[Rfam]
Rfam assigns this 401-nucleotide part of an RNA from Pythium oligandrum to the family "Eukaryotic large subunit ribosomal RNA".

RNA sequence: GUUCGUUGUCCAAACAGUAAUCCAACCCAGUACGAGAGGAACCGUUGGUUCAGAUAAUUGGUAACUGCAGUUAGCUGAAAAGCUAGUGCUGCCAAGCUACCAUCUGUAGGAUUAUGGCUGAACGCCUCUAAGUCAGAAUCCAUGCUGGAAUGGACGAUAAUCACCCUUCCUGAUGUAACGCGAAUAGCGAUAGAUGCUUCGGCAUCCAACAUCAUAAAAUUGCAACGCACUCGCAUUGCCUGCCAAAUGGUGGUAGUGGAGAGUAUGCUGAAUUGUAAUUUCAAAUAUUGGGAAGGAUAAAUCCUUUGUAGACGACUUAAAUAAAGAACAGGGUGUUGUAAGCAUGAGAGUAGUCUUGUACUACGAUCUGCUGAGAUUUAGCCCAUGUUCUAUUGAUUUGU
Numbered sequence: 001g002u003u004c005g006u007u008g009u010c011c012a013a014a015c016a017g018u019a020a021u022c023c024a025a026c027c028c029a030g031u032a033c034g035a036g037a038g039g040a041a042c043c044g045u046u047g048g049u050u051c052a053g054a055u056a057a058u059u060g061g062u063a064a065c066u067g068c069a070g071u072u073a074g075c076u077g078a079a080a081a082g083c084u085a086g087u088g089c090u091g092c093c094a095a096g097c098u099a100c101c102a103u104c105u106g107u108a109g110g111a112u113u114a115u116g117g118c119u120g121a122a123c124g125c126c127u128c129u130a131a132g133u134c135a136g137a138a139u140c141c142a143u144g145c146u147g148g149a150a151u152g153g154a155c156g157a158u159a160a161u162c163a164c165c166c167u168u169c170c171u172g173a174u175g176u177a178a179c180g181c182g183a184a185u186a187g188c189g190a191u192a193g194a195u196g197c198u199u200c201g202g203c204a205u206c207c208a209a210c211a212u213c214a215u216a217a218a219a220u221u222g223c224a225a226c227g228c229a230c231u232c233g234c235a236u237u238g239c240c241u242g243c244c245a246a247a248u249g250g251u252g253g254u255a256g257u258g259g260a261g262a263g264u265a266u267g268c269u270g271a272a273u274u275g276u277a278a279u280u281u282c283a284a285a286u287a288u289u290g291g292g293a294a295g296g297a298u299a300a301a302u303c304c305u306u307u308g309u310a311g312a313c314g315a316c317u318u319a320a321a322u323a324a325a326g327a328a329c330a331g332g333g334u335g336u337u338g339u340a341a342g343c344a345u346g347a348g349a350g351u352a353g354u355c356u357u358g359u360a361c362u363a364c365g366a367u368c369u370g371c372u373g374a375g376a377u378u379u380a381g382c383c384c385a386u387g388u389u390c391u392a393u394u395g396a397u398u399u400g401u
Base pairs, nucleotide, nucleotide: 005158006157007156008155009154010153011152012151015147016146017145018144020050022048023047024046025045026044051106052105053104054103055102059099060098061097067092068091069090070089071086072085073084074083075082076081109141110140115135116134117133118132119131166295167294168293169292170291171290172289299399300398301397302396303395305319308316325391326390327389328388329387330386331384332383333382335377336376342371343370344369347367350364351363352362353361354360

Annotation: Pairs were carried over by alignment from the consensus structure, which is taken from published work.